[Rfam]
RNA sequence: UAUGGUUUGAGAGAGCUUGCUUCAGUCCACUCAUAGACAGGUGAAAAGGGUUUUUGAAUUUGCUGCCGACUCAUUCAUUCAAACACGUUAGAGAGGAAUUUACGCACUCCGCGCGCUCGCUACCGUGAAUGUGUGAAUGAUGCGGGAGUAAAUUUUUAUCCUAUUCUUUUCUGUGCUUGGACUGAAGGGAGCUCCCUCCUCUAAUUAA
Numbered sequence: 001u002a003u004g005g006u007u008u009g010a011g012a013g014a015g016c017u018u019g020c021u022u023c024a025g026u027c028c029a030c031u032c033a034u035a036g037a038c039a040g041g042u043g044a045a046a047a048g049g050g051u052u053u054u055u056g057a058a059u060u061u062g063c064u065g066c067c068g069a070c071u072c073a074u075u076c077a078u079u080c081a082a083a084c085a086c087g088u089u090a091g092a093g094a095g096g097a098a099u100u101u102a103c104g105c106a107c108u109c110c111g112c113g114c115g116c117u118c119g120c121u122a123c124c125g126u127g128a129a130u131g132u133g134u135g136a137a138u139g140a141u142g143c144g145g146g147a148g149u150a151a152a153u154u155u156u157u158a159u160c161c162u163a164u165u166c167u168u169u170u171c172u173g174u175g176c177u178u179g180g181a182c183u184g185a186a187g188g189g190a191g192c193u194c195c196c197u198c199c200u201c202u203a204a205u206u207a208a
Stems, first nucleotide, its partner, number of pairs: 013194006020187001023184007036171001063148002066145003072139004080131001
Overview:
MIR159 microRNA precursor family: a 208-nucleotide RNA. The literature on the family includes a 2004 paper in Mol Cell by Jones-Rhoades and Bartel, "Computational identification of plant microRNAs and their targets, including a stress-induced miRNA".